Rfam assigns this 117-nucleotide RNA from Psychrobacter sp. KH172YL61 to the family "ALIL pseudoknot". The literature on the family includes a 2008 paper in J Biol Chem by Mazauric et al., "Apical loop-internal loop RNA pseudoknots: a new type of stimulator of -1 translational frameshifting in bacteria". Gene Ontology term of the family: positive regulation of translational frameshifting. It scores 97 bits against the family's covariance model.
RNA sequence: CGCUUUUUUCGCCCAGGCGGAGCUCGACCGUCCACCGAAAUAAUGGUCACAUUUAUCGAUGAUCACAAGCAGAAAUACGGGAUCGAGCCAAUCUGUAGAGUACUACCGAUUGCCCCA
Numbered sequence: 001c002g003c004u005u006u007u008u009u010c011g012c013c014c015a016g017g018c019g020g021a022g023c024u025c026g027a028c029c030g031u032c033c034a035c036c037g038a039a040a041u042a043a044u045g046g047u048c049a050c051a052u053u054u055a056u057c058g059a060u061g062a063u064c065a066c067a068a069g070c071a072g073a074a075a076u077a078c079g080g081g082a083u084c085g086a087g088c089c090a091a092u093c094u095g096u097a098g099a100g101u102a103c104u105a106c107c108g109a110u111u112g113c114c115c116c117a
Stems, first nucleotide, its partner, number of pairs: 016032005079116003089112002092109002095106004
The family's RNA type in Rfam is cis-regulatory element.